[Rfam]
This 61-nucleotide RNA from Streptomyces humidus belongs to the Rfam family "Actino-pnp RNA". It scores 65 bits against the family's covariance model. Pairs were carried over by alignment from the consensus structure, which is taken from published work.
RNA sequence: GCCGGUCCUCGGUAGUGGCUCCCGGGAAAGAGAACCCCGGGUGCUUCGAUCGAAGACCGGC
Numbered sequence: 001g002c003c004g005g006u007c008c009u010c011g012g013u014a015g016u017g018g019c020u021c022c023c024g025g026g027a028a029a030g031a032g033a034a035c036c037c038c039g040g041g042u043g044c045u046u047c048g049a050u051c052g053a054a055g056a057c058c059g060g061c
Base pairs, nucleotide, nucleotide: 001061002060003059004058005057006056007055009053010052011051012050013049017045018044019043021041022040023039024038025037026036
The family's RNA type in Rfam is cis-regulatory element.